The family of this 129-nucleotide sequence from Megadenia pygmaea is "Plastid-psbA-1 3UTR RNA".
Pairs were carried over by alignment from the consensus structure, which was predicted with LocARNA.
Its Rfam clan is "Plastid-psbA 3UTR RNA clan".
On this family, see Richter et al., Plant Commun 2023: "Retrograde signaling in plants: A critical review focusing on the GUN pathway and beyond".

RNA sequence: GUUGAGGCUCCAUCUACAAAUGGAUAAUUCUUUAGCGUUAGUUUCGACCUAGUUUAGUAUUUAGUAAUAGUAAAAAACGAGCAAUAUAAGCCUUCUUUAAAUAAAAAAGAAGGCUUAUAUUGCUCAUUU
Numbered sequence: 001g002u003u004g005a006g007g008c009u010c011c012a013u014c015u016a017c018a019a020a021u022g023g024a025u026a027a028u029u030c031u032u033u034a035g036c037g038u039u040a041g042u043u044u045c046g047a048c049c050u051a052g053u054u055u056a057g058u059a060u061u062u063a064g065u066a067a068u069a070g071u072a073a074a075a076a077a078c079g080a081g082c083a084a085u086a087u088a089a090g091c092c093u094u095c096u097u098u099a100a101a102u103a104a105a106a107a108a109g110a111a112g113g114c115u116u117a118u119a120u121u122g123c124u125c126a127u128u129u
Base pairs, nucleotide, nucleotide: 009024010023011022012021013020075129076128077127079125080124081123082122083121084120085119086118087113093104094103

By type it is a cis-regulatory element.